Annotation
Rfam assigns this 199-nucleotide RNA sequence from Rossellomorea vietnamensis to the family "Bacillus sRNA ncr1575".
[Rfam]
RNA sequence: UUUACUAAAUAUGACAGGAGUGAUGGGUGGACGAUGAAGAACUAAUCUUAUUUUCGAGACGUUUGAAAUUCCAUAUUUCAAAUCAACCUAAAUAGGAUUAGUCUGCCCAUUUUUAUACAUGUUUUUAGCUAUUGUUCAUUCAUAGCUUACUUUGUGCGCGCAGUGCUAAUCCUUCCAGAACCAGUGGGAGGAUUUUUUG
Numbered sequence: 001u002u003u004a005c006u007a008a009a010u011a012u013g014a015c016a017g018g019a020g021u022g023a024u025g026g027g028u029g030g031a032c033g034a035u036g037a038a039g040a041a042c043u044a045a046u047c048u049u050a051u052u053u054u055c056g057a058g059a060c061g062u063u064u065g066a067a068a069u070u071c072c073a074u075a076u077u078u079c080a081a082a083u084c085a086a087c088c089u090a091a092a093u094a095g096g097a098u099u100a101g102u103c104u105g106c107c108c109a110u111u112u113u114u115a116u117a118c119a120u121g122u123u124u125u126u127a128g129c130u131a132u133u134g135u136u137c138a139u140u141c142a143u144a145g146c147u148u149a150c151u152u153u154g155u156g157c158g159c160g161c162a163g164u165g166c167u168a169a170u171c172c173u174u175c176c177a178g179a180a181c182c183a184g185u186g187g188g189a190g191g192a193u194u195u196u197u198u199g
Stems, first nucleotide, its partner, number of pairs: 016114003024109004030103003043100011061083009121150002128146005134140001168194010

On this family, see Irnov et al., Nucleic Acids Res 2010: "Identification of regulatory RNAs in Bacillus subtilis". NCBI's taxonomy places the organism under Bacteria, Bacillati, Bacilli, Bacillaceae, Rossellomorea.